[Rfam]
RNA sequence: GUAUUGUGGGGACCACCUCUCCAAGAGGUGUUCGGCAGUAGCCAGCCGGUGACCGCACGCAAGCCUAGACCCCUUCCGUGCCAUUCCAAGCCGUCACCGCGUCAGCCAUGCCAUUUUUUUAU
Numbered sequence: 001g002u003a004u005u006g007u008g009g010g011g012a013c014c015a016c017c018u019c020u021c022c023a024a025g026a027g028g029u030g031u032u033c034g035g036c037a038g039u040a041g042c043c044a045g046c047c048g049g050u051g052a053c054c055g056c057a058c059g060c061a062a063g064c065c066u067a068g069a070c071c072c073c074u075u076c077c078g079u080g081c082c083a084u085u086c087c088a089a090g091c092c093g094u095c096a097c098c099g100c101g102u103c104a105g106c107c108a109u110g111c112c113a114u115u116u117u118u119u120u121a122u
Stems, first nucleotide, its partner, number of pairs: 006114004010107002014030007034043003045102002047099007055081003060078001062075002